[Rfam]
RNA sequence: CUGCCCGUGACCCGAGCGGGAGUAGGAGAGGAGGAGCUGGGGCUCUGGCAGAGGAUCGCCGGGAUCACAUGGAAAGCACGUCCUCUCGGAGCGCGGAGUCUCUGGCCUGGGCUCCCCAGCGGAAUUGGGAGGAGUCCGGGGAGAUGGUGCGGAAGGCACCGCGUGAGGCGGGCGACCGAGCAGCGAUCACUCCCCGCUCUGCGCAGUCGAGGGACAGCGUGCUUCAAUACUUGC
Numbered sequence: 001c002u003g004c005c006c007g008u009g010a011c012c013c014g015a016g017c018g019g020g021a022g023u024a025g026g027a028g029a030g031g032a033g034g035a036g037c038u039g040g041g042g043c044u045c046u047g048g049c050a051g052a053g054g055a056u057c058g059c060c061g062g063g064a065u066c067a068c069a070u071g072g073a074a075a076g077c078a079c080g081u082c083c084u085c086u087c088g089g090a091g092c093g094c095g096g097a098g099u100c101u102c103u104g105g106c107c108u109g110g111g112c113u114c115c116c117c118a119g120c121g122g123a124a125u126u127g128g129g130a131g132g133a134g135u136c137c138g139g140g141g142a143g144a145u146g147g148u149g150c151g152g153a154a155g156g157c158a159c160c161g162c163g164u165g166a167g168g169c170g171g172g173c174g175a176c177c178g179a180g181c182a183g184c185g186a187u188c189a190c191u192c193c194c195c196g197c198u199c200u201g202c203g204c205a206g207u208c209g210a211g212g213g214a215c216a217g218c219g220u221g222c223u224u225c226a227a228u229a230c231u232u233g234c
Stems, first nucleotide, its partner, number of pairs: 011020003048234003052231002055228002058225001074224008082213002085211005091204009101144003106140010116128003145149001151194002154191002162185003169178003